[Rfam]
RNA: Singlet oxygen resistance RNA X
Nucleotides: 081
Stems, first nucleotide, its partner, number of pairs: 008035005014029003055075008
Number, partner (000 for none) and nucleotide at each position: 001000a002000u003000c004000u005000g006000u007000a008035u009034g010033a011032a012031g013000a014029g015028c016027g017000c018000g019000g020000c021000a022000a023000a024000c025000a026000c027016c028015g029014c030000a031012c032011u033010u034009c035008a036000u037000a038000c039000c040000u041000c042000c043000c044000u045000g046000u047000u048000g049000g050000a051000c052000u053000u054000c055075g056074g057073c058072c059071g060070a061069g062068c063000u064000u065000a066000g067000u068062g069061c070060u071059c072058g073057g074056c075055c076000u077000u078000u079000u080000u081000u